[Rfam]
RNA: c-di-AMP riboswitch aptamer (ydaO/yuaA leader)
Organism: Psychromicrobium lacuslunae
RNA sequence: CCUUGCCUCUGGCUGCGGACCUUUAGCAAUACAGGCAAGGACGGGGGAACCAAAACCGGCUGUCCAUCUGGACAGUCUUGGGGUGAAGUUCUUGGUCAAGAUGGCUCUGCCAUCGCGCCCAGGGACCGGAUUGCUCUCUAAUCCGAAUCCGACAGCUAACCUCGCAAGUGUUGAGAGAGGAAGA
Number, nucleotide and partner (000 for none) at each position: 001c040002c039003u038004u037005g036006c035007c034008u033009c000010u000011g000012g000013c000014u000015g000016c000017g000018g000019a000020c000021c000022u000023u000024u000025a000026g000027c000028a000029a000030u000031a000032c000033a008034g007035g006036c005037a004038a003039g002040g001041a000042c164043g163044g162045g161046g160047g000048a000049a000050c000051c080052a079053a000054a000055a000056c000057c000058g000059g000060c000061u000062g000063u000064c000065c000066a000067u000068c000069u000070g000071g000072a000073c000074a000075g000076u000077c000078u000079u052080g051081g150082g149083g148084u000085g000086a000087a000088g000089u125090u124091c123092u122093u121094g120095g119096u000097c000098a000099a000100g000101a000102u000103g000104g000105c000106u000107c000108u000109g000110c000111c000112a000113u000114c000115g000116c000117g000118c000119c095120c094121a093122g092123g091124g090125a089126c000127c000128g144129g143130a142131u141132u000133g000134c000135u000136c000137u000138c000139u000140a000141a131142u130143c129144c128145g000146a000147a000148u083149c082150c081151g000152a000153c000154a000155g000156c000157u000158a000159a000160c046161c045162u044163c043164g042165c000166a000167a000168g000169u000170g000171u000172u000173g000174a000175g000176a000177g000178a000179g000180g000181a000182a000183g000184a000